RNA sequence: GAAACGUGAACCUGGCACGGCAUCCGCCGGUCAGACCAGGACCGUCCCGCCGCAAGGCAGGACUACC
Numbered sequence: 001g002a003a004a005c006g007u008g009a010a011c012c013u014g015g016c017a018c019g020g021c022a023u024c025c026g027c028c029g030g031u032c033a034g035a036c037c038a039g040g041a042c043c044g045u046c047c048c049g050c051c052g053c054a055a056g057g058c059a060g061g062a063c064u065a066c067c
Stems, first nucleotide, its partner, number of pairs: 011040005018029004044063004049058003
RNA: Transposase-2 RNA
Organism: Dactylosporangium vinaceum